[Rfam]
Actinobacteria sRNA Ms_AS-4: an 82-nucleotide RNA sequence from Kribbella antiqua. It scores 60 bits against the family's covariance model. Taxonomically the source falls in Kribbella (Bacteria, Bacillati, Actinomycetes, Propionibacteriales). The pairing is the family consensus, mapped onto this sequence. The family's RNA type in Rfam is small RNA.

RNA sequence: GGCAGCAUCGAGGAAGCGGGUCGGAUCGUCUCCGAACUCGCCCAGCACCCGGCCGCCGAGGACCACACCGAGUCCGGGCAGA
Numbered sequence: 001g002g003c004a005g006c007a008u009c010g011a012g013g014a015a016g017c018g019g020g021u022c023g024g025a026u027c028g029u030c031u032c033c034g035a036a037c038u039c040g041c042c043c044a045g046c047a048c049c050c051g052g053c054c055g056c057c058g059a060g061g062a063c064c065a066c067a068c069c070g071a072g073u074c075c076g077g078g079c080a081g082a
Stems, first nucleotide, its partner, number of pairs: 008044001010042001013039001018038002021035005055079003060075004